This 100-nucleotide RNA sequence from Salmonella enterica belongs to the Rfam family "TPP riboswitch aptamer (THI element)". The source organism's lineage runs through Bacteria, Pseudomonadati, Pseudomonadota, Enterobacteriaceae and Salmonella enterica subsp. enterica.
RNA sequence: CCGAACUCAACGGGGUGCCGCGCUCAUGCGCGCGCUGAGAAAAUACCCGUCGAACCUGAUCCGGAUAAUGCCGGCGAAGGGAUUUGAGGCUACCUCUCAA
Number, nucleotide and partner (000 for none) at each position: 001c000002c000003g000004a000005a000006c088007u087008c086009a085010a084011c049012g048013g047014g046015g000016u043017g035018c034019c032020g031021c030022g000023c000024u000025c000026a000027u000028g000029c000030g021031c020032g019033c000034g018035c017036u000037g000038a000039g000040a000041a000042a000043a016044u000045a000046c014047c013048c012049g011050u000051c000052g000053a000054a000055c080056c079057u078058g000059a000060u000061c074062c073063g072064g071065a000066u000067a000068a000069u000070g000071c064072c063073g062074g061075c000076g000077a000078a057079g056080g055081g000082a000083u000084u010085u009086g008087a007088g006089g000090c000091u000092a000093c000094c000095u000096c000097u000098c000099a000100a000